[Rfam]
RNA sequence: UGAAAAACUUGGGUAGUGAGACGAUGUGAAUUGAAUGCUUUCGUAUCACUAUUCAGUCUUUCGCC
Numbered sequence: 001u002g003a004a005a006a007a008c009u010u011g012g013g014u015a016g017u018g019a020g021a022c023g024a025u026g027u028g029a030a031u032u033g034a035a036u037g038c039u040u041u042c043g044u045a046u047c048a049c050u051a052u053u054c055a056g057u058c059u060u061u062c063g064c065c
Stems, first nucleotide, its partner, number of pairs: 002062004007057003011054003015050005021044003